[Rfam]
RNA sequence: GAGGCGGGCCGUGACUGGCGUUCGGGUGGAUCACCACCGGGGAGCGGCCCGGCGUAUGUCCGCACGUACGUCUCCUGCCGCGCGCCUGGGCGACCGCG
Number, nucleotide and partner (000 for none) at each position: 001g000002a000003g053004g000005c051006g050007g049008g048009c047010c046011g045012u044013g000014a000015c041016u040017g086018g085019c084020g083021u082022u000023c000024g000025g000026g037027u036028g035029g034030a000031u000032c000033a000034c029035c028036a027037c026038c000039g000040g016041g015042g000043a000044g012045c011046g010047g009048c008049c007050c006051g005052g000053c003054g000055u000056a000057u000058g000059u000060c000061c000062g000063c000064a000065c000066g000067u000068a000069c000070g000071u000072c000073u000074c000075c000076u092077g091078c090079c089080g000081c000082g021083c020084g019085c018086c017087u000088g000089g079090g078091c077092g076093a000094c000095c000096g000097c000098g000
Rfam assigns this 98-nucleotide sequence from Streptomyces vinaceus to the family "ZMP/ZTP riboswitch aptamer (pfl RNA motif)". Rfam links the family to the GO terms regulation of purine nucleotide biosynthetic process and one-carbon metabolic process. The match comes from Rfam's covariance-model search (55 bits).